[Rfam]
Shown here is a 113-nucleotide RNA from Cohnella rhizosphaerae, a member of the family "epsC RNA".

RNA sequence: AGGUGAUGUCUACCGGACCUUUAUCACCGUAGGCACUCGGCCAUGCUGUGGGUGAAUGUUCACCUUAGGCGUGCAUCGUCAAGGGUGUGGCGUGAGGAGGGGUUAGAUGCCCC
Numbered sequence: 001a002g003g004u005g006a007u008g009u010c011u012a013c014c015g016g017a018c019c020u021u022u023a024u025c026a027c028c029g030u031a032g033g034c035a036c037u038c039g040g041c042c043a044u045g046c047u048g049u050g051g052g053u054g055a056a057u058g059u060u061c062a063c064c065u066u067a068g069g070c071g072u073g074c075a076u077c078g079u080c081a082a083g084g085g086u087g088u089g090g091c092g093u094g095a096g097g098a099g100g101g102g103u104u105a106g107a108u109g110c111c112c113c
Stems, first nucleotide, its partner, number of pairs: 001020004007035007036096004040091008050065006068080004099113005